[Rfam]
RNA: Small nucleolar RNA snoR31/Z110/Z27
Organism: Acer saccharum
RNA sequence: AUCAAGAUGAUGAAAUUAUGAAAACUUAGGACACCUUCUGACACAAUUACUGUGUAUGAGAAAGAUUUCUCUUCUGAUACUUGAU
Numbered sequence: 001a002u003c004a005a006g007a008u009g010a011u012g013a014a015a016u017u018a019u020g021a022a023a024a025c026u027u028a029g030g031a032c033a034c035c036u037u038c039u040g041a042c043a044c045a046a047u048u049a050c051u052g053u054g055u056a057u058g059a060g061a062a063a064g065a066u067u068u069c070u071c072u073u074c075u076g077a078u079a080c081u082u083g084a085u
Stems, first nucleotide, its partner, number of pairs: 001085005039045002